[Rfam]
RNA sequence: CACCGAGUCCGAGGUUCCGGACCCGACCGGGACCAGGUGCAAAGGGA
Numbered sequence: 001c002a003c004c005g006a007g008u009c010c011g012a013g014g015u016u017c018c019g020g021a022c023c024c025g026a027c028c029g030g031g032a033c034c035a036g037g038u039g040c041a042a043a044g045g046g047a
Stems, first nucleotide, its partner, number of pairs: 013034008
raiA-hairpin RNA: a 47-nucleotide RNA from Streptomyces mexicanus. Rfam classes the family as a small RNA. Pairs were carried over by alignment from the consensus structure, which is taken from published work. Lineage of the source: Bacteria > Actinomycetota > Kitasatosporales > Streptomycetaceae > Streptomyces.